The record is a 222-nucleotide RNA from Limnospira maxima, which matches "HNH endonuclease-associated RNA and ORF (HEARO) RNA" in Rfam.
NCBI's taxonomy places the organism under Bacteria, Bacillati, Cyanobacteriota, Limnospira, Limnospira maxima.
On this family, see Weinberg et al., Nature 2009: "Exceptional structured noncoding RNAs revealed by bacterial metagenome analysis".
RNA sequence: GUCAGCACCCCCGCCUGAAGCACGGGGGCUUCGUGCCUCCCGCAACAGAAUAGCUGACCAGCUAUAGCCGUAACUGGCUACGUUCAGAGCAAGAGUUAAAGUUCCUACCCUGGAAUGCGUGCUAGUUCCCGGCUCUAGAACCGAAUCGUUAAAUAGUUUUAAGGGGUUAAGACAGUGCGAUUUGGAGAGACUCUUCCUGUUAGGCAAUUCACUGAACAACGA
Numbered sequence: 001g002u003c004a005g006c007a008c009c010c011c012c013g014c015c016u017g018a019a020g021c022a023c024g025g026g027g028g029c030u031u032c033g034u035g036c037c038u039c040c041c042g043c044a045a046c047a048g049a050a051u052a053g054c055u056g057a058c059c060a061g062c063u064a065u066a067g068c069c070g071u072a073a074c075u076g077g078c079u080a081c082g083u084u085c086a087g088a089g090c091a092a093g094a095g096u097u098a099a100a101g102u103u104c105c106u107a108c109c110c111u112g113g114a115a116u117g118c119g120u121g122c123u124a125g126u127u128c129c130c131g132g133c134u135c136u137a138g139a140a141c142c143g144a145a146u147c148g149u150u151a152a153a154u155a156g157u158u159u160u161a162a163g164g165g166g167u168u169a170a171g172a173c174a175g176u177g178c179g180a181u182u183u184g185g186a187g188a189g190a191c192u193c194u195u196c197c198u199g200u201u202a203g204g205c206a207a208u209u210c211a212c213u214g215a216a217c218a219a220c221g222a
Stems, first nucleotide, its partner, number of pairs: 001058006007051001009028002011025002015020001030050003061213001063211001064208002066079004082205001083203002086200001094198002098194001103139002109132002112129005120218001123216001141185009153176002156173007